[Rfam]
RNA sequence: UUACUCCCUCCGUCUCAUAAUAUAAGACGUUUUUUGACACUAUAUUAAUAUCAAAAAGCGUCCUAUAUUAUGGGACGGAGGGAGUAG
Numbered sequence: 001u002u003a004c005u006c007c008c009u010c011c012g013u014c015u016c017a018u019a020a021u022a023u024a025a026g027a028c029g030u031u032u033u034u035u036g037a038c039a040c041u042a043u044a045u046u047a048a049u050a051u052c053a054a055a056a057a058g059c060g061u062c063c064u065a066u067a068u069u070a071u072g073g074g075a076c077g078g079a080g081g082g083a084g085u086a087g
Base pairs, nucleotide, nucleotide: 003085004084005083007081008080009079010078011077013075014074015073016072017071019069020068021067022066023065024064026062027061028060029059030058031057032056033055034054035053036052037051039049041047
Rfam assigns this 87-nucleotide RNA from Aegilops tauschii to the family "MIR1120/MIR1122 microRNA precursor family". Gene Ontology terms of the family: miRNA-mediated post-transcriptional gene silencing and RISC complex. The family's consensus secondary structure was predicted with RNAalifold. On this family, see Yao et al., Genome Biol 2007: "Cloning and characterization of microRNAs from wheat (Triticum aestivum L.)".